[Rfam]
RNA sequence: UUGUUAAUACUAAUCGUGAUAGGAGUUUUACCUCUGAUUAACUCCUACAUGUUAGCAUUGGCAC
Number, nucleotide and partner (000 for none) at each position: 001u000002u000003g000004u061005u060006a059007a058008u057009a000010c055011u054012a053013a052014u051015c000016g000017u000018g000019a000020u047021a046022g045023g044024a000025g042026u041027u040028u000029u000030a000031c000032c000033u000034c000035u000036g000037a000038u000039u000040a027041a026042c025043u000044c023045c022046u021047a020048c000049a000050u000051g014052u013053u012054a011055g010056c000057a008058u007059u006060g005061g004062c000063a000064c000